[Rfam]
RNA: Small nucleolar RNA SNORD103/SNORD85
RNA sequence: UCUGGCACUGAUGACACACUUGCCCUCACUGAGAACAGUGUUCGGUUAUGAGAACUUCACCAAUGUACUCAAAUUGAUCUGAGCCAGA
Number, nucleotide and partner (000 for none) at each position: 001u088002c087003u086004g085005g084006c083007a000008c000009u000010g000011a000012u000013g000014a000015c000016a000017c000018a000019c000020u000021u000022g000023c000024c000025c000026u000027c000028a000029c000030u000031g000032a000033g000034a000035a000036c000037a000038g000039u000040g000041u000042u000043c000044g000045g000046u000047u000048a000049u000050g000051a000052g000053a000054a000055c000056u000057u000058c000059a000060c000061c000062a000063a000064u000065g000066u000067a000068c000069u000070c000071a000072a000073a000074u000075u000076g000077a000078u000079c000080u000081g000082a000083g006084c005085c004086a003087g002088a001